A member of the RNA family "RNase MRP" from Neurospora crassa, 496 nucleotides long.
It is annotated as a ribozyme.
RNase MRP is an enzymatically active ribonucleoprotein with two distinct roles in eukaryotes. In mitochondria it plays a direct role in the initiation of mitochondrial DNA replication. In the nucleus it is involved in precursor rRNA processing, where it cleaves the internal transcribed spacer 1 between 18S and 5.8S rRNAs. Despite distinct functions, RNase MRP has been shown to be evolutionarily related to RNase P. Like eukaryotic RNase P, RNase MRP is not catalytically active without associated protein subunits.
RNA sequence: CCCUCGUCCGACAAAUCGCUAUUCGAAGCUUCCACACGGAGAGAUCACGCUUUUUUUGCGCGCUUCUUUCAUUUCCUCGAGCUUUGGGAGAAAGUCCCCGGACAUUCGUUCGCUUGCGAACGGAUUGCGGAAACGCGCCGCCAUAGAAGCACUGCGGCUGAUCUCGGCCGCCCAGUUCCUCGUCUGUCUUGCCCAGCCCUGCCCGUCACACCAAAGUCGACCUCGUCUGCUUCUCCAGGGAGGGUGUCAUCUUCCGAGCUCGGGGACCACAUGGACGAAGAUAUGAGUCCGCGCCUCGGGUGACGAGUUUGAUGCCUGAUCUGGGGAGCUGGGGUCGAUGGCGGGUUCAGCCGCUUGGGUGGUCCGGACUUGGGGCGUUUUGACGGUGGCUCGAGAGGUUUCGUCACGAUACCACAGAUAUGCGAUUGCUCGCUCUUGUUUCUCUUCGGGGAAGCUGCGGCGAAGUUACUCGACGGGGCUUAUUCUUGGUGCGAGG
Numbered sequence: 001c002c003c004u005c006g007u008c009c010g011a012c013a014a015a016u017c018g019c020u021a022u023u024c025g026a027a028g029c030u031u032c033c034a035c036a037c038g039g040a041g042a043g044a045u046c047a048c049g050c051u052u053u054u055u056u057u058g059c060g061c062g063c064u065u066c067u068u069u070c071a072u073u074u075c076c077u078c079g080a081g082c083u084u085u086g087g088g089a090g091a092a093a094g095u096c097c098c099c100g101g102a103c104a105u106u107c108g109u110u111c112g113c114u115u116g117c118g119a120a121c122g123g124a125u126u127g128c129g130g131a132a133a134c135g136c137g138c139c140g141c142c143a144u145a146g147a148a149g150c151a152c153u154g155c156g157g158c159u160g161a162u163c164u165c166g167g168c169c170g171c172c173c174a175g176u177u178c179c180u181c182g183u184c185u186g187u188c189u190u191g192c193c194c195a196g197c198c199c200u201g202c203c204c205g206u207c208a209c210a211c212c213a214a215a216g217u218c219g220a221c222c223u224c225g226u227c228u229g230c231u232u233c234u235c236c237a238g239g240g241a242g243g244g245u246g247u248c249a250u251c252u253u254c255c256g257a258g259c260u261c262g263g264g265g266a267c268c269a270c271a272u273g274g275a276c277g278a279a280g281a282u283a284u285g286a287g288u289c290c291g292c293g294c295c296u297c298g299g300g301u302g303a304c305g306a307g308u309u310u311g312a313u314g315c316c317u318g319a320u321c322u323g324g325g326g327a328g329c330u331g332g333g334g335u336c337g338a339u340g341g342c343g344g345g346u347u348c349a350g351c352c353g354c355u356u357g358g359g360u361g362g363u364c365c366g367g368a369c370u371u372g373g374g375g376c377g378u379u380u381u382g383a384c385g386g387u388g389g390c391u392c393g394a395g396a397g398g399u400u401u402c403g404u405c406a407c408g409a410u411a412c413c414a415c416a417g418a419u420a421u422g423c424g425a426u427u428g429c430u431c432g433c434u435c436u437u438g439u440u441u442c443u444c445u446u447c448g449g450g451g452a453a454g455c456u457g458c459g460g461c462g463a464a465g466u467u468a469c470u471c472g473a474c475g476g477g478g479c480u481u482a483u484u485c486u487u488g489g490u491g492c493g494a495g496g
Stems, first nucleotide, its partner, number of pairs: 002496006008489004014427006023088001024086006039070006092481003096478004117135002121129002137158005248398001250396001255393005261386001263384001273380004363373002366370001429465002431462003
The sequence is in the family's curated seed alignment.